[Rfam]
RNA sequence: GUUCAAAACACAGUGAUGCAUUUUCCAAGCACAUAUCUAAUUGUUCUGGGUAGAAAAUGACUGUUGCUAUGUGAUUUUUGGAU
Numbered sequence: 001g002u003u004c005a006a007a008a009c010a011c012a013g014u015g016a017u018g019c020a021u022u023u024u025c026c027a028a029g030c031a032c033a034u035a036u037c038u039a040a041u042u043g044u045u046c047u048g049g050g051u052a053g054a055a056a057a058u059g060a061c062u063g064u065u066g067c068u069a070u071g072u073g074a075u076u077u078u079u080g081g082a083u
Stems, first nucleotide, its partner, number of pairs: 001083006008076001009073003
RNA: Small nucleolar RNA SNORD121A
Organism: Cyanoderma ruficeps